[Rfam]
RNA: tRNA
RNA sequence: GAGAAUUUAGCUCAAUGGGAGAGCGCCCGACUUGUAAUCGGGAGGUCACAGGUUCAACUCCUGUAAUUCACU
Numbered sequence: 001g002a003g004a005a006u007u008u009a010g011c012u013c014a015a016u017g018g019g020a021g022a023g024c025g026c027c028c029g030a031c032u033u034g035u036a037a038u039c040g041g042g043a044g045g046u047c048a049c050a051g052g053u054u055c056a057a058c059u060c061c062u063g064u065a066a067u068u069c070a071c072u
Stems, first nucleotide, its partner, number of pairs: 001071001003069005010024004026042005048064005